The record is a 79-nucleotide sequence, which matches "chrB-a RNA" in Rfam.
[Rfam]
RNA sequence: ACUAUGGGGACACGCGAUCUCCCCACGAGGCGACAUGCCCAAGUAUCGCGUUUCGCACUUUGCGAGGCGCUCUGUCAUG
Numbered sequence: 001a002c003u004a005u006g007g008g009g010a011c012a013c014g015c016g017a018u019c020u021c022c023c024c025a026c027g028a029g030g031c032g033a034c035a036u037g038c039c040c041a042a043g044u045a046u047c048g049c050g051u052u053u054c055g056c057a058c059u060u061u062g063c064g065a066g067g068c069g070c071u072c073u074g075u076c077a078u079g
Base pairs, nucleotide, nucleotide: 005025006024007023008022009021010020048070049069050068051067052066053065